Record summary: The family of this 74-nucleotide RNA from Methanobrevibacter curvatus is "tRNA". NCBI's taxonomy places the organism under Archaea, Methanobacteriati, Methanobacteriota, Methanobacteria, Methanobrevibacter. The family's RNA type in Rfam is transfer RNA.
RNA sequence: GGGCUUGUAGCCUAGUCUGGAAGGGCGUUAGACUCCUAAUCUAAAGAUCGAGGGUUCAAAUCCCUCCAAGUCCG
Numbered sequence: 001g002g003g004c005u006u007g008u009a010g011c012c013u014a015g016u017c018u019g020g021a022a023g024g025g026c027g028u029u030a031g032a033c034u035c036c037u038a039a040u041c042u043a044a045a046g047a048u049c050g051a052g053g054g055u056u057c058a059a060a061u062c063c064c065u066c067c068a069a070g071u072c073c074g
Base pairs, nucleotide, nucleotide: 001073002072003071004070005069006068007067010026011025012024013023028044029043030042031041032040050066051065052064053063054062